c-di-AMP riboswitch aptamer (ydaO/yuaA leader): a 158-nucleotide sequence from Streptomyces phyllanthi. The base pairs follow the family's consensus structure. NCBI's taxonomy places the organism under Bacteria, Actinomycetota, Actinomycetes, Streptomycetaceae, Streptomyces.
RNA sequence: GCCGCGAACUCACCCACGCACGGCAGGAGCGGGGGACCCAAAGGCAGUAACGCCUGUUCCGGUCCCGGAACAGGCUUGGGGUAAAGCCGUGCGCGAGUACGGCCGGGCAUCUCCAGUCCGCACCCGACAGCUCACCUCGCAGGCGCCGGAGAGGAAUU
Numbered sequence: 001g002c003c004g005c006g007a008a009c010u011c012a013c014c015c016a017c018g019c020a021c022g023g024c025a026g027g028a029g030c031g032g033g034g035g036a037c038c039c040a041a042a043g044g045c046a047g048u049a050a051c052g053c054c055u056g057u058u059c060c061g062g063u064c065c066c067g068g069a070a071c072a073g074g075c076u077u078g079g080g081g082u083a084a085a086g087c088c089g090u091g092c093g094c095g096a097g098u099a100c101g102g103c104c105g106g107g108c109a110u111c112u113c114c115a116g117u118c119c120g121c122a123c124c125c126g127a128c129a130g131c132u133c134a135c136c137u138c139g140c141a142g143g144c145g146c147c148g149g150a151g152a153g154g155a156a157u158u
Stems, first nucleotide, its partner, number of pairs: 001144003010027002029140006039078002079125003087102004105119004